[Rfam]
RNA: Small nucleolar RNA Z105
RNA sequence: CCAGCAUAGUGAUGAUUGUUUAUUAUUAUCCGAUUAAUUCAUGAACGGAUUUACAAACCUCCUACUCAUUCUGA
Numbered sequence: 001c002c003a004g005c006a007u008a009g010u011g012a013u014g015a016u017u018g019u020u021u022a023u024u025a026u027u028a029u030c031c032g033a034u035u036a037a038u039u040c041a042u043g044a045a046c047g048g049a050u051u052u053a054c055a056a057a058c059c060u061c062c063u064a065c066u067c068a069u070u071c072u073g074a
Stems, first nucleotide, its partner, number of pairs: 006069002009066001026049002030043001